This 57-nucleotide RNA sequence from Streptomyces sp. MA5143a belongs to the Rfam family "msiK RNA". Rfam 15.1 lists 1,374 matches to the family in 1,364 species.
[Rfam]
RNA sequence: GGCUCACCACCUUUACUCGGAUCGUCCGGCACGUUCCUGCCGGUGAAGGGGGUCUAC
Numbered sequence: 001g002g003c004u005c006a007c008c009a010c011c012u013u014u015a016c017u018c019g020g021a022u023c024g025u026c027c028g029g030c031a032c033g034u035u036c037c038u039g040c041c042g043g044u045g046a047a048g049g050g051g052g053u054c055u056a057c
Base pairs, nucleotide, nucleotide: 010049011048012047013046014045015044026043027042028041029040030039031038
A search with the family's covariance model found it, with a score of 50 bits. Taxonomically the source falls in Streptomyces (Bacteria, Actinomycetota, Actinomycetes, Streptomycetaceae). Pairs were carried over by alignment from the consensus structure, which is taken from published work.